[Rfam]
RNA sequence: GACGCGCAAGCAAAUGGGCUUGAUGUAAGGGCUAAACGGGGUCGAGUUG
Number, nucleotide and partner (000 for none) at each position: 001g000002a000003c000004g026005c025006g024007c022008a021009a020010g019011c018012a000013a000014a000015u000016g000017g000018g011019c010020u009021u008022g007023a000024u006025g005026u004027a000028a000029g000030g043031g042032c041033u040034a000035a000036a000037c000038g000039g000040g033041g032042u031043c030044g000045a000046g000047u000048u000049g000
gut-2 RNA: a 49-nucleotide sequence.
The sequence is in the family's curated seed alignment.